A member of the RNA family "Eukaryotic large subunit ribosomal RNA" from Coemansia brasiliensis, 498 nucleotides of a longer RNA. Rfam links the family to the GO terms structural constituent of ribosome and ribosome. Taxonomically the source falls in Coemansia (Eukaryota, Kickxellomycetes, Kickxellales, Kickxellaceae). A search with the family's covariance model found it, with a score of 3000 bits.
[Rfam]
RNA sequence: CCCGCCGAAGUUUCCCUCAGGAUAGCCGGCACAAACAAACAGUUCUAUGGGGUAGAGCGAAUGAUUAGAGGCCUUGGGGCAAUAACUGCCUUAACCUAUUCUCAAACUUCCAAUCUGUAGGAAGCUCUGGCUACUUGAGUGAGCCAGAGCGGCUGAAUGGAUUGUGCUGAGUGGGCCAUUUUUGGUAAGCAGAACUGGCGCUGCGGGAUGAACCGAACGGGGAGAUGCGGUGCCUAAUGGCACGCUAACGGAUACCACAAAAGGUGUUGGUCCAUCUAGACAGCCGGACGGUGGCCAUGGAAGUCGGAAUCCGCUAAGGAGUGUGUAACAACUCACCGGCCGAAUGGACUAGCCCUGAAAAUGGAUGGCGCUUAAGCGUGCAACCUAUACUCCCCCGGCAGCCCGGGCCCCACAGGAUGGGCUGCCGAGUAGGCGGGCGUGGGGGUUGGCGCAGAAGGCGUGGGCGUGAGCCUCGCUGGAGCGGCCCCUAGUGCAGAU
Numbered sequence: 001c002c003c004g005c006c007g008a009a010g011u012u013u014c015c016c017u018c019a020g021g022a023u024a025g026c027c028g029g030c031a032c033a034a035a036c037a038a039a040c041a042g043u044u045c046u047a048u049g050g051g052g053u054a055g056a057g058c059g060a061a062u063g064a065u066u067a068g069a070g071g072c073c074u075u076g077g078g079g080c081a082a083u084a085a086c087u088g089c090c091u092u093a094a095c096c097u098a099u100u101c102u103c104a105a106a107c108u109u110c111c112a113a114u115c116u117g118u119a120g121g122a123a124g125c126u127c128u129g130g131c132u133a134c135u136u137g138a139g140u141g142a143g144c145c146a147g148a149g150c151g152g153c154u155g156a157a158u159g160g161a162u163u164g165u166g167c168u169g170a171g172u173g174g175g176c177c178a179u180u181u182u183u184g185g186u187a188a189g190c191a192g193a194a195c196u197g198g199c200g201c202u203g204c205g206g207g208a209u210g211a212a213c214c215g216a217a218c219g220g221g222g223a224g225a226u227g228c229g230g231u232g233c234c235u236a237a238u239g240g241c242a243c244g245c246u247a248a249c250g251g252a253u254a255c256c257a258c259a260a261a262a263g264g265u266g267u268u269g270g271u272c273c274a275u276c277u278a279g280a281c282a283g284c285c286g287g288a289c290g291g292u293g294g295c296c297a298u299g300g301a302a303g304u305c306g307g308a309a310u311c312c313g314c315u316a317a318g319g320a321g322u323g324u325g326u327a328a329c330a331a332c333u334c335a336c337c338g339g340c341c342g343a344a345u346g347g348a349c350u351a352g353c354c355c356u357g358a359a360a361a362u363g364g365a366u367g368g369c370g371c372u373u374a375a376g377c378g379u380g381c382a383a384c385c386u387a388u389a390c391u392c393c394c395c396c397g398g399c400a401g402c403c404c405g406g407g408c409c410c411c412a413c414a415g416g417a418u419g420g421g422c423u424g425c426c427g428a429g430u431a432g433g434c435g436g437g438c439g440u441g442g443g444g445g446u447u448g449g450c451g452c453a454g455a456a457g458g459c460g461u462g463g464g465c466g467u468g469a470g471c472c473u474c475g476c477u478g479g480a481g482c483g484g485c486c487c488c489u490a491g492u493g494c495a496g497a498u
Stems, first nucleotide, its partner, number of pairs: 001437006011024001013022003027169007043122008055110001056108002062104003067099001069097003074094006081087001124150009175199004180194005204215003219395005229385003238382001240381001243378003262356003266353010283340005289313003295307002314318001319334001323332002396427009438493001440490008449482002457477002463472003